[Rfam]
RNA sequence: CAGUGAUUUCAGCUCUUUUAGUAUUUGUCUAGCAGGUUUCCUGGGGUGCCAGGAAGCCUCU
Numbered sequence: 001c002a003g004u005g006a007u008u009u010c011a012g013c014u015c016u017u018u019u020a021g022u023a024u025u026u027g028u029c030u031a032g033c034a035g036g037u038u039u040c041c042u043g044g045g046g047u048g049c050c051a052g053g054a055a056g057c058c059u060c061u
Base pairs, nucleotide, nucleotide: 035058036057037056038055039054040053041052042051043050044049
Source information
The family of this 61-nucleotide sequence from Gopherus evgoodei is "U7 small nuclear RNA". Taxonomically the source falls in Gopherus (Eukaryota, Metazoa, Deuterostomia, Testudinata). Pairs were carried over by alignment from the consensus structure, which was predicted with PFOLD.